[Rfam]
RNA: Mahella-1 RNA
RNA sequence: CCCGAGCCGCUGUAAAAGCUCAACCCAAUGAGAUUUUCCUGUAGAGGUUAGCGGCAAAUAACGCCAUACGAUAAGUAGGGGCGUUAUGUAGUGCCGGAUGAAAUGCCGGUGAA
Dot-bracket structure: ................................(.((((.....)))).)........((((((((.(((.....)))..)))))))).....(((((........)))))...
Numbered sequence: 001c002c003c004g005a006g007c008c009g010c011u012g013u014a015a016a017a018g019c020u021c022a023a024c025c026c027a028a029u030g031a032g033a034u035u036u037u038c039c040u041g042u043a044g045a046g047g048u049u050a051g052c053g054g055c056a057a058a059u060a061a062c063g064c065c066a067u068a069c070g071a072u073a074a075g076u077a078g079g080g081g082c083g084u085u086a087u088g089u090a091g092u093g094c095c096g097g098a099u100g101a102a103a104u105g106c107c108g109g110u111g112a113a
Stems, first nucleotide, its partner, number of pairs: 033049001035047004058087008067077003093110005